[Rfam]
RNA sequence: GACAUGGAUGGCUAGGGUUCCUGCUCACGCUUGCAGUGAGUGCACGGUCCAAGAGCCACCCGCCGCGCUGCCUGCAGGCUUGUAGGACCAUCAGCGCGGUACACGGCGGGAUAAAAGCCCGGGAGAU
Numbered sequence: 001g002a003c004a005u006g007g008a009u010g011g012c013u014a015g016g017g018u019u020c021c022u023g024c025u026c027a028c029g030c031u032u033g034c035a036g037u038g039a040g041u042g043c044a045c046g047g048u049c050c051a052a053g054a055g056c057c058a059c060c061c062g063c064c065g066c067g068c069u070g071c072c073u074g075c076a077g078g079c080u081u082g083u084a085g086g087a088c089c090a091u092c093a094g095c096g097c098g099g100u101a102c103a104c105g106g107c108g109g110g111a112u113a114a115a116a117g118c119c120c121g122g123g124a125g126a127u
Base pairs, nucleotide, nucleotide: 007060009058010057011056012055015050016049020047021046022044023041024040025039026038027037028036062100063099064098065097066096067095068094069093102122104125108120109119110118
A member of the RNA family "Guanidine-I riboswitch aptamer" from Arboricoccus pini, 127 nucleotides long. About the family: This family represents a conserved RNA structure found upstream of the ykkC and yxkD genes in Bacillus subtilis and related genes in other bacteria. The family has 100 seed sequences and 1,509 matches in Rfam 15.1. Its family is annotated with regulation of gene expression in the Gene Ontology.